[Rfam]
RNA sequence: CAAGUUUAGAGCCAUAGCAGAAGCGCUCACGGUGCAGCCUCUCAGAUUCCAUCGAAUCUAUGAAUUCUACU
Number, nucleotide and partner (000 for none) at each position: 001c000002a000003a000004g000005u000006u000007u000008a000009g000010a000011g038012c037013c000014a000015u000016a071017g070018c000019a068020g067021a066022a065023g035024c034025g033026c000027u000028c000029a000030c000031g000032g000033u025034g024035c023036a000037g012038c011039c000040u000041c000042u000043c000044a059045g058046a057047u056048u055049c054050c000051a000052u000053c000054g049055a048056a047057u046058c045059u044060a000061u000062g000063a000064a000065u022066u021067c020068u019069a000070c017071u016

This 71-nucleotide sequence from Alligator sinensis belongs to the Rfam family "Mammalian CPEB3 ribozyme". The family's consensus secondary structure is taken from published work.